[Rfam]
RNA sequence: AUGGAGUUUCACCAUGUUGGCCAGGCUGGUCUUAAACUCCUGACCUCAGGUAUUCAAGACCAGCCUGGCCAACAUGGUGAAACCCUCA
Numbered sequence: 001a002u003g004g005a006g007u008u009u010c011a012c013c014a015u016g017u018u019g020g021c022c023a024g025g026c027u028g029g030u031c032u033u034a035a036a037c038u039c040c041u042g043a044c045c046u047c048a049g050g051u052a053u054u055c056a057a058g059a060c061c062a063g064c065c066u067g068g069c070c071a072a073c074a075u076g077g078u079g080a081a082a083c084c085c086u087c088a
Base pairs, nucleotide, nucleotide: 007082008081009080010079011078012077013076014075019070020069021068022067023066024065025064032063033062
Description
A member of the RNA family "mir-1285 microRNA precursor family" from Aotus nancymaae, 88 nucleotides long. The match comes from Rfam's covariance-model search (56 bits). The source organism's lineage runs through Eukaryota, Eumetazoa, Bilateria, Euteleostomi and Aotus.